[Rfam]
The record is a 96-nucleotide RNA from Phtheirospermum japonicum, which matches "Small nucleolar RNA R11/Z151" in Rfam. Lineage of the source: Eukaryota > Streptophytina > Magnoliopsida > Mesangiospermae > Phtheirospermum. The base pairs follow the family's consensus structure, which was predicted with PFOLD. Its family is annotated with RNA processing and nucleolus in the Gene Ontology. On this family, see Barneche et al., J Mol Biol 2001: "Identification of 66 box C/D snoRNAs in Arabidopsis thaliana: extensive gene duplications generated multiple isoforms predicting new ribosomal RNA 2'-O-methylation sites". It scores 79 bits against the family's covariance model.

RNA sequence: GAGCUUAUGAUGAAAAAAUAAUUAUCUUAGCGGAUUUCAGUGAGAUUAUAAAUUAAUUUUUGAUCAGUGAUCUGAUUGUUACACACACUGAAGCUC
Numbered sequence: 001g002a003g004c005u006u007a008u009g010a011u012g013a014a015a016a017a018a019u020a021a022u023u024a025u026c027u028u029a030g031c032g033g034a035u036u037u038c039a040g041u042g043a044g045a046u047u048a049u050a051a052a053u054u055a056a057u058u059u060u061u062g063a064u065c066a067g068u069g070a071u072c073u074g075a076u077u078g079u080u081a082c083a084c085a086c087a088c089u090g091a092a093g094c095u096c
Stems, first nucleotide, its partner, number of pairs: 001096005